RNA sequence: AAAUAAACAAAUAUUCGCACUCAUAUAAGCCUAAUGAUAGGGAUUAGGCGUUUCUACCAGACAACCGUAAAUUGUCAGGCUAUGGGUUUUUAGGUAGAUUUA
Number, nucleotide and partner (000 for none) at each position: 001a000002a000003a000004u000005a000006a000007a000008c000009a000010a000011a000012u000013a000014u000015u000016c000017g000018c000019a087020c086021u085022c084023a083024u082025a081026u000027a000028a000029g049030c048031c047032u046033a045034a044035u043036g000037a000038u000039a000040g000041g000042g000043a035044u034045u033046a032047g031048g030049c029050g000051u000052u000053u000054c000055u000056a000057c000058c078059a000060g076061a075062c074063a073064a072065c000066c000067g000068u000069a000070a000071a000072u064073u063074g062075u061076c060077a000078g058079g000080c000081u025082a024083u023084g022085g021086g020087u019088u000089u000090u000091u000092a000093g000094g000095u000096a000097g000098a000099u000100u000101u000102a000

Rfam assigns this 102-nucleotide sequence from Clostridium tetanomorphum to the family "Purine riboswitch aptamer".
The organism belongs to Clostridium, within Bacteria.
The match comes from Rfam's covariance-model search (83 bits).
The family's consensus secondary structure is taken from published work.